The record is a 47-nucleotide RNA sequence from Agrilutibacter solisilvae, which matches "Guanidine-II riboswitch aptamer (mini-ykkC)" in Rfam. Taxonomically the source falls in Agrilutibacter (Bacteria, Pseudomonadati, Gammaproteobacteria, Lysobacterales). The family has 72 seed sequences and 1,589 matches in Rfam 15.1. It scores 42 bits against the family's covariance model.
RNA sequence: GCGCAGGGACGACCCUGCCGCCUCAUCGGAUUCCGGGGACGACCCCG
Numbered sequence: 001g002c003g004c005a006g007g008g009a010c011g012a013c014c015c016u017g018c019c020g021c022c023u024c025a026u027c028g029g030a031u032u033c034c035g036g037g038g039a040c041g042a043c044c045c046c047g
Stems, first nucleotide, its partner, number of pairs: 003018006034047005